[Rfam]
RNA sequence: UUUGGCAUUGGGCUUGCGCGCCACGAUGCCGUUACCCACCGCGUGCAGCAGGUGCGUCUUACCGAGGCCCGUGCCGCCGUA
Dot-bracket structure: ....((..((((...(((.((......)))))..))))..))........((((.((...((........))))))))...
About this RNA: The record is an 81-nucleotide RNA sequence from Pseudescherichia vulneris, which matches "antisense RNA of dnaA mRNA" in Rfam. The organism belongs to Pseudescherichia vulneris, within Bacteria. The base pairs follow the family's consensus structure, which was predicted with RNAfold. A search with the family's covariance model found it, with a score of 86 bits. Its family is annotated with regulation of mRNA stability in the Gene Ontology.